[Rfam]
RNA sequence: UCCGCCCUGGUGUAACGGCAGCACCCCAGCCUUUGGAGCUGUGGAGUACAGGUUCGAAUCCUGUGGGCGGAA
Numbered sequence: 001u002c003c004g005c006c007c008u009g010g011u012g013u014a015a016c017g018g019c020a021g022c023a024c025c026c027c028a029g030c031c032u033u034u035g036g037a038g039c040u041g042u043g044g045a046g047u048a049c050a051g052g053u054u055c056g057a058a059u060c061c062u063g064u065g066g067g068c069g070g071a072a
Base pairs, nucleotide, nucleotide: 001071002070003069004068005067006066007065010024011023012022013021027041028040029039030038048064049063050062051061052060

Rfam assigns this 72-nucleotide RNA sequence from Arthrobacter sp. PAMC 25486 to the family "tRNA".
Gene Ontology term of the family: triplet codon-amino acid adaptor activity.
Lineage of the source: Bacteria > Bacillati > Actinomycetes > Micrococcaceae > Arthrobacter.
Transfer RNA (tRNA) molecules are approximately 80 nucleotides in length.
Pairs were carried over by alignment from the consensus structure, which is taken from published work.